[Rfam]
RNA sequence: UCUCUCAAAUAAAAUCUUUAAAAAAUUUAAAAAUAACUUUAAAAAGGUAUUAGUUCUGUGGCUCUACUGAAACACAAGUCAUGCUUCCACCACAGCAGGUUUAUUGCAGUGGUGACAAUGAGACUUGUAACAUUU
Numbered sequence: 001u002c003u004c005u006c007a008a009a010u011a012a013a014a015u016c017u018u019u020a021a022a023a024a025a026u027u028u029a030a031a032a033a034u035a036a037c038u039u040u041a042a043a044a045a046g047g048u049a050u051u052a053g054u055u056c057u058g059u060g061g062c063u064c065u066a067c068u069g070a071a072a073c074a075c076a077a078g079u080c081a082u083g084c085u086u087c088c089a090c091c092a093c094a095g096c097a098g099g100u101u102u103a104u105u106g107c108a109g110u111g112g113u114g115a116c117a118a119u120g121a122g123a124c125u126u127g128u129a130a131c132a133u134u135u
Stems, first nucleotide, its partner, number of pairs: 002058001018042005074128005088114006
A member of the RNA family "Small nucleolar RNA SNORA1" from Ursus americanus, 135 nucleotides long. Rfam links the family to the GO terms nucleolus and RNA processing. Rfam 15.1 lists 1,282 matches to the family in 515 species. About the family: ACA1 is a member of the H/ACA class of snoRNA that guide the sites of modification of uridines to pseudouridines.